[Rfam]
RNA sequence: GAUCGACUCUCUGGAGACACCCGGAUCAGCCGGGGGCCGAAGGUGCAACAUACGAAUUUCUCGUAUGAAUCUCUCAGGUAAAAGGACAGAGAAGAUAUU
Numbered sequence: 001g002a003u004c005g006a007c008u009c010u011c012u013g014g015a016g017a018c019a020c021c022c023g024g025a026u027c028a029g030c031c032g033g034g035g036g037c038c039g040a041a042g043g044u045g046c047a048a049c050a051u052a053c054g055a056a057u058u059u060c061u062c063g064u065a066u067g068a069a070u071c072u073c074u075c076a077g078g079u080a081a082a083a084g085g086a087c088a089g090a091g092a093a094g095a096u097a098u099u
Stems, first nucleotide, its partner, number of pairs: 008092006020034004036079003039075002043073001045071001050066006
Dot-bracket structure: .......((((((......((((.......)))).(((((..(.(....((((((.....))))))....).))).))).......)))))).......

Notes:
This 99-nucleotide RNA sequence from Firmicutes bacterium AF36-19BH belongs to the Rfam family "Glycine riboswitch aptamer". The match comes from Rfam's covariance-model search (58 bits). The source organism's lineage runs through Bacteria, Bacillati and Bacillota.